Rfam assigns this 229-nucleotide RNA from Trichocoleus sp. FACHB-832 to the family "c-di-AMP riboswitch aptamer (ydaO/yuaA leader)".
RNA sequence: UGAGUAAGUCAGCCUAAUCCAGUGUUUCGCAGCCUAUAAGUCCGCGUGGAAGCUGGAGCGGAGGAACCAAAUUUUGGGGCAUAUCUGGAACAAGGUGAUAGGUGAAAGGCGCAAGGUGGAAUAAAAAAGAUUAUUCAUCCUUCCUCUUUGAUUAUUCAUCCAAGUUCUAGAAGGGCAUCUCUCAGCCCUAGCCCGUCAGCUAACUUCGUAGGCAUUGAGAGGAGACUGG
Numbered sequence: 001u002g003a004g005u006a007a008g009u010c011a012g013c014c015u016a017a018u019c020c021a022g023u024g025u026u027u028c029g030c031a032g033c034c035u036a037u038a039a040g041u042c043c044g045c046g047u048g049g050a051a052g053c054u055g056g057a058g059c060g061g062a063g064g065a066a067c068c069a070a071a072u073u074u075u076g077g078g079g080c081a082u083a084u085c086u087g088g089a090a091c092a093a094g095g096u097g098a099u100a101g102g103u104g105a106a107a108g109g110c111g112c113a114a115g116g117u118g119g120a121a122u123a124a125a126a127a128a129g130a131u132u133a134u135u136c137a138u139c140c141u142u143c144c145u146c147u148u149u150g151a152u153u154a155u156u157c158a159u160c161c162a163a164g165u166u167c168u169a170g171a172a173g174g175g176c177a178u179c180u181c182u183c184a185g186c187c188c189u190a191g192c193c194c195g196u197c198a199g200c201u202a203a204c205u206u207c208g209u210a211g212g213c214a215u216u217g218a219g220a221g222g223a224g225a226c227u228g229g
Stems, first nucleotide, its partner, number of pairs: 012213003018057006058209006068076002077194003085170007173188004
Rfam's curators write: This family represents a conserved RNA structure found upstream of the ydaO and yuaA genes in Bacillus subtilis and related genes in other bacteria. The ydaO/yuaA element is thought to act as a genetic 'off' switch for the ydaO and yuaA genes in its native state.